RNA: c-di-AMP riboswitch aptamer (ydaO/yuaA leader)
RNA sequence: CGCCGAGUCAUCGUGACCGGUGAGCCGGGGAACCAUCGCGGAGGGUGCGACUCCCUCCGCCGGGGUGAAUCCGCGCAGUGCGCGGUAGGGCGCACAUUUCUUCCCGUCCGAACCCGUCAGCUAACCCGGUAGGCG
Numbered sequence: 001c002g003c004c005g006a007g008u009c010a011u012c013g014u015g016a017c018c019g020g021u022g023a024g025c026c027g028g029g030g031a032a033c034c035a036u037c038g039c040g041g042a043g044g045g046u047g048c049g050a051c052u053c054c055c056u057c058c059g060c061c062g063g064g065g066u067g068a069a070u071c072c073g074c075g076c077a078g079u080g081c082g083c084g085g086u087a088g089g090g091c092g093c094a095c096a097u098u099u100c101u102u103c104c105c106g107u108c109c110g111a112a113c114c115c116g117u118c119a120g121c122u123a124a125c126c127c128g129g130u131a132g133g134c135g
Base pairs, nucleotide, nucleotide: 001135002134003133004132008023009022010021011020012019013018024130025129026128027127028126029125034062063115064114065113071085072084073083074082088109089108090107091106